[Rfam]
RNA sequence: CGGCAACAGUGAUGACAGGAAUUGCGACUGUAUGUAAUGUCUCAUUACCACAUGGAGACACCAGUCCCUCUAAACUGAUGUUGCCG
Number, nucleotide and partner (000 for none) at each position: 001c086002g085003g084004c083005a082006a081007c080008a000009g000010u000011g000012a000013u000014g000015a000016c000017a000018g000019g000020a000021a000022u000023u000024g000025c000026g000027a000028c000029u000030g000031u000032a000033u000034g000035u000036a000037a000038u000039g000040u000041c000042u000043c000044a000045u000046u000047a000048c000049c000050a000051c000052a000053u000054g000055g000056a000057g000058a000059c000060a000061c000062c000063a000064g000065u000066c000067c000068c000069u000070c000071u000072a000073a000074a000075c000076u000077g000078a000079u000080g007081u006082u005083g004084c003085c002086g001
RNA: Small nucleolar RNA SNORD127
Organism: Scopus umbretta